RNA sequence: GCACUAAGCCAUCCGGUGGAUGGCUCGGCUCGGGCGCCGACGAAGGGCGCGGCAAGCAGCGAUAUGCCAGGGGUAGACGCAUGCAGUUGUUGAACCCUGGAUUCCCGAAUGGGACUUCCUGCCGUAAGGCGUACCCUUCGUGGGUAUGGGAACCCCCCGAACGGAAGCAUCUUAGUAGGGGGAGGAGGAGAAAUCAAUUGAGAUCUCCUGAGUAGGGGCGACCGAAAGGGAGGCAGCUCAAACCAAACCCGCUGGCGAAAGUUAGUGGGGAUGUGGUGUUUUGCCUCAGGUUAGGGGUAACCCAGCUUCCCGAGCCUUCUUAGCCGAAUUCCCCUGGAAUGGGGAACCAUAGAGGGUGAAAGUCCCGUAGGUUAAAAGAAGGUGGGAAGUGAUCUGAGGAAGAGUACCAUCCCCUGGUUUGGGGGUGGGAAGAUGGGGGUCACACGCCUCCAAAGCUAAAUACGUCCCGAGACCGAUAGCGAACUAAGUACCGUGAGGGAAAGCUGAAAAGCACCCUGGAGGGGGUGUGAAAAGUGCCUGAAACCGGAUGGUAACAUAG
Numbered sequence: 001g002c003a004c005u006a007a008g009c010c011a012u013c014c015g016g017u018g019g020a021u022g023g024c025u026c027g028g029c030u031c032g033g034g035c036g037c038c039g040a041c042g043a044a045g046g047g048c049g050c051g052g053c054a055a056g057c058a059g060c061g062a063u064a065u066g067c068c069a070g071g072g073g074u075a076g077a078c079g080c081a082u083g084c085a086g087u088u089g090u091u092g093a094a095c096c097c098u099g100g101a102u103u104c105c106c107g108a109a110u111g112g113g114a115c116u117u118c119c120u121g122c123c124g125u126a127a128g129g130c131g132u133a134c135c136c137u138u139c140g141u142g143g144g145u146a147u148g149g150g151a152a153c154c155c156c157c158c159g160a161a162c163g164g165a166a167g168c169a170u171c172u173u174a175g176u177a178g179g180g181g182g183a184g185g186a187g188g189a190g191a192a193a194u195c196a197a198u199u200g201a202g203a204u205c206u207c208c209u210g211a212g213u214a215g216g217g218g219c220g221a222c223c224g225a226a227a228g229g230g231a232g233g234c235a236g237c238u239c240a241a242a243c244c245a246a247a248c249c250c251g252c253u254g255g256c257g258a259a260a261g262u263u264a265g266u267g268g269g270g271a272u273g274u275g276g277u278g279u280u281u282u283g284c285c286u287c288a289g290g291u292u293a294g295g296g297g298u299a300a301c302c303c304a305g306c307u308u309c310c311c312g313a314g315c316c317u318u319c320u321u322a323g324c325c326g327a328a329u330u331c332c333c334c335u336g337g338a339a340u341g342g343g344g345a346a347c348c349a350u351a352g353a354g355g356g357u358g359a360a361a362g363u364c365c366c367g368u369a370g371g372u373u374a375a376a377a378g379a380a381g382g383u384g385g386g387a388a389g390u391g392a393u394c395u396g397a398g399g400a401a402g403a404g405u406a407c408c409a410u411c412c413c414c415u416g417g418u419u420u421g422g423g424g425g426u427g428g429g430a431a432g433a434u435g436g437g438g439g440u441c442a443c444a445c446g447c448c449u450c451c452a453a454a455g456c457u458a459a460a461u462a463c464g465u466c467c468c469g470a471g472a473c474c475g476a477u478a479g480c481g482a483a484c485u486a487a488g489u490a491c492c493g494u495g496a497g498g499g500a501a502a503g504c505u506g507a508a509a510a511g512c513a514c515c516c517u518g519g520a521g522g523g524g525g526u527g528u529g530a531a532a533a534g535u536g537c538c539u540g541a542a543a544c545c546g547g548a549u550g551g552u553a554a555c556a557u558a559g
Base pairs, nucleotide, nucleotide: 008552009551010550011549012548013547014546015545016544022538023504024503027474028473029471030470031469032468033467034466035464036463045106046105047104048061049060050059067100068099069098070097071096072095076088077087078086111120112119113118132146133145134144135143136142153184154182155181156180157179158178164171165170194201195200205232206231207230208229209228215223216222235457236456237455238454243276244275245274253264254263255262256261287396288395289394290393307388308387309386310385323372324371325370329345331344332343333342334341348352354366355365356364407428408427409426410425411424412423413422435451436450437449438448439447491498492497